Annotation
The record is a 372-nucleotide part of an RNA from an uncultured Nitrososphaerota archaeon, which matches "Archaeal large subunit ribosomal RNA" in Rfam.
RNA sequence: CGGGGGCACGGGGGGCGAGGGAACUCGGCAAAUUGGCCCCGUAACUUUGGGAGAAGGGGUGCCUGCGAUCUUGGGUGAAAGCUCGGGAUCGCAGGUCGCAGUGGCAAGGGGGUCCCGACUGUUUAAUAAAAACACAGGUGGCUGCUAGCCCGAAAGGGUUUGUACAGCCGCUGAAUCCUGGCCAGUGGGGGCACCUGAAACCCGGGUCCAACCGGGCCAAGGGCCUCUAAACGCCGGGAGUAACUCUGACUCUCUUAAGGUAGCCAAAUGCCUUGUCGGGUAAGUUCCGACGCGCAUGAAUGGAUCAACGAGGACCCCACUGUCCCCGCCCCCCACCCGGUGAACCCACCUGGUGGAUGAAUAGUCCACCAA
Numbered sequence: 001c002g003g004g005g006g007c008a009c010g011g012g013g014g015g016c017g018a019g020g021g022a023a024c025u026c027g028g029c030a031a032a033u034u035g036g037c038c039c040c041g042u043a044a045c046u047u048u049g050g051g052a053g054a055a056g057g058g059g060u061g062c063c064u065g066c067g068a069u070c071u072u073g074g075g076u077g078a079a080a081g082c083u084c085g086g087g088a089u090c091g092c093a094g095g096u097c098g099c100a101g102u103g104g105c106a107a108g109g110g111g112g113u114c115c116c117g118a119c120u121g122u123u124u125a126a127u128a129a130a131a132a133c134a135c136a137g138g139u140g141g142c143u144g145c146u147a148g149c150c151c152g153a154a155a156g157g158g159u160u161u162g163u164a165c166a167g168c169c170g171c172u173g174a175a176u177c178c179u180g181g182c183c184a185g186u187g188g189g190g191g192c193a194c195c196u197g198a199a200a201c202c203c204g205g206g207u208c209c210a211a212c213c214g215g216g217c218c219a220a221g222g223g224c225c226u227c228u229a230a231a232c233g234c235c236g237g238g239a240g241u242a243a244c245u246c247u248g249a250c251u252c253u254c255u256u257a258a259g260g261u262a263g264c265c266a267a268a269u270g271c272c273u274u275g276u277c278g279g280g281u282a283a284g285u286u287c288c289g290a291c292g293c294g295c296a297u298g299a300a301u302g303g304a305u306c307a308a309c310g311a312g313g314a315c316c317c318c319a320c321u322g323u324c325c326c327c328g329c330c331c332c333c334c335a336c337c338c339g340g341u342g343a344a345c346c347c348a349c350c351u352g353g354u355g356g357a358u359g360a361a362u363a364g365u366c367c368a369c370c371a372a
Stems, first nucleotide, its partner, number of pairs: 001339004010334008019325003036060005045050001061096015097101001109318007116310002120134003137172008145162001148159004175305004180235003185232002187228005194223003201216005236254006255259001275291006352370005